[Rfam]
RNA sequence: GAGCCAGCUUAGCCUAGUGAUUCCUUCACAACUUGCAGAUUGUUUUUCAACUGCUAUCUCUUAGUAGUUCGAGUCCCACAGGCUCGGCUUUAAU
Numbered sequence: 001g002a003g004c005c006a007g008c009u010u011a012g013c014c015u016a017g018u019g020a021u022u023c024c025u026u027c028a029c030a031a032c033u034u035g036c037a038g039a040u041u042g043u044u045u046u047u048c049a050a051c052u053g054c055u056a057u058c059u060c061u062u063a064g065u066a067g068u069u070c071g072a073g074u075c076c077c078a079c080a081g082g083c084u085c086g087g088c089u090u091u092a093a094u
Stems, first nucleotide, its partner, number of pairs: 002089004007084001012083004017079003025073003